Background
A member of the RNA family "Group II catalytic intron D1-D4-5" from Ruminiclostridium sufflavum, 213 nucleotides long. The match comes from Rfam's covariance-model search (145 bits). The base pairs follow the family's consensus structure. Rfam describes the family as follows. Group II introns are found in rRNA, tRNA and mRNA of organelles in fungi, plants and protists, and also in mRNA in bacteria.

RNA sequence: UCUAACUGUAACUUCGAUAGGUGGAAUGAUGGAGUAACGCCCCGAAACGCCUACCCUGAUACUCCGAUUGGCGUUGCAAGAUAGUAAUUGCAGGGUCAAAAGCUCGGUGAAGUCGACUGAAUGCACUCGCUAUAUCGACAACGGUAAAAUGUAAAUGUAUCGUUAUGGCAAAAGCAAGCCAGAGGUGGCUGUGGGUGUUAGGUCGGGGGUCUA
Numbered sequence: 001u002c003u004a005a006c007u008g009u010a011a012c013u014u015c016g017a018u019a020g021g022u023g024g025a026a027u028g029a030u031g032g033a034g035u036a037a038c039g040c041c042c043c044g045a046a047a048c049g050c051c052u053a054c055c056c057u058g059a060u061a062c063u064c065c066g067a068u069u070g071g072c073g074u075u076g077c078a079a080g081a082u083a084g085u086a087a088u089u090g091c092a093g094g095g096u097c098a099a100a101a102g103c104u105c106g107g108u109g110a111a112g113u114c115g116a117c118u119g120a121a122u123g124c125a126c127u128c129g130c131u132a133u134a135u136c137g138a139c140a141a142c143g144g145u146a147a148a149a150u151g152u153a154a155a156u157g158u159a160u161c162g163u164u165a166u167g168g169c170a171a172a173a174g175c176a177a178g179c180c181a182g183a184g185g186u187g188g189c190u191g192u193g194g195g196u197g198u199u200a201g202g203u204c205g206g207g208g209g210u211c212u213a
Stems, first nucleotide, its partner, number of pairs: 018053006031043002034040001054209004064107004068099005074093006114205005123198006150170003157166002174192003178189004